[Rfam]
RNA sequence: UAUUUAUCAGUGGCAGUGCCCACUAUAUUUA
Numbered sequence: 001u002a003u004u005u006a007u008c009a010g011u012g013g014c015a016g017u018g019c020c021c022a023c024u025a026u027a028u029u030u031a
Stems, first nucleotide, its partner, number of pairs: 001031002005027003009024005014018001